This 78-nucleotide RNA from Denticeps clupeoides belongs to the Rfam family "Small nucleolar RNA SNORD83". Rfam 15.1 lists 1,393 matches to the family in 644 species. A search with the family's covariance model found it, with a score of 48 bits. Rfam links the family to the GO terms nucleolus and RNA processing.

[Rfam]
Nucleotides: 078
Stems, first nucleotide, its partner, number of pairs: 001077004029041004
Number, partner (000 for none) and nucleotide at each position: 001077g002076c003075c004074a005000c006000a007000u008000g009000a010000u011000g012000a013000g014000g015000c016000c017000u018000a019000g020000a021000u022000c023000u024000c025000a026000c027000g028000a029041g030040c031039a032038c033000g034000u035000g036000u037000c038032g039031u040030g041029u042000g043000a044000a045000g046000a047000u048000g049000a050000c051000c052000u053000c054000c055000a056000u057000c058000u059000a060000u061000c062000a063000c064000c065000c066000a067000g068000g069000a070000c071000u072000g073000a074004u075003g076002g077001c078000u